The record is a 95-nucleotide sequence from Antarcticimicrobium sediminis, which matches "Rhodo-rpoB RNA" in Rfam.
By type it is a cis-regulatory element.
Pairs were carried over by alignment from the consensus structure, which is taken from published work.
It scores 64 bits against the family's covariance model.
[Rfam]
RNA sequence: GGAUCGGGAAGGACGCCAGUCGGGACGGCGACCGCGAAUUGAUCCGAACUUGCGAUCUCGUAUGGGGAAGCGGCCGUGGCCCGGCGGCUGUCUUU
Numbered sequence: 001g002g003a004u005c006g007g008g009a010a011g012g013a014c015g016c017c018a019g020u021c022g023g024g025a026c027g028g029c030g031a032c033c034g035c036g037a038a039u040u041g042a043u044c045c046g047a048a049c050u051u052g053c054g055a056u057c058u059c060g061u062a063u064g065g066g067g068a069a070g071c072g073g074c075c076g077u078g079g080c081c082c083g084g085c086g087g088c089u090g091u092c093u094u095u
Base pairs, nucleotide, nucleotide: 001045002044003043004042005041011033012032014030015029016028017027067095068094069093070092072089073088074087075086076085